[Rfam]
RNA sequence: AACUGAAUUGCAGCGCCAGAACCCGGCAGCCGGGUUGACGAGGUGGGAGUUAAUCGAAGUUUUCGGCGGAUGCUCCCCGGUUUGGCCAUAACCGACAAAGGCACUACAAAUCCCGCGGGCAACCGCGGGGACAAAGGGUGCCGGGUGGCCGCAA
Numbered sequence: 001a002a003c004u005g006a007a008u009u010g011c012a013g014c015g016c017c018a019g020a021a022c023c024c025g026g027c028a029g030c031c032g033g034g035u036u037g038a039c040g041a042g043g044u045g046g047g048a049g050u051u052a053a054u055c056g057a058a059g060u061u062u063u064c065g066g067c068g069g070a071u072g073c074u075c076c077c078c079g080g081u082u083u084g085g086c087c088a089u090a091a092c093c094g095a096c097a098a099a100g101g102c103a104c105u106a107c108a109a110a111u112c113c114c115g116c117g118g119g120c121a122a123c124c125g126c127g128g129g130g131a132c133a134a135a136g137g138g139u140g141c142c143g144g145g146u147g148g149c150c151g152c153a154a
Stems, first nucleotide, its partner, number of pairs: 020036007045077005054066004078094005100142005112129007
A member of the RNA family "glmS glucosamine-6-phosphate activated ribozyme aptamer" from Desulfotruncus arcticus, 154 nucleotides long. The organism belongs to Desulfotruncus arcticus, within Bacteria. The family's consensus secondary structure is taken from published work.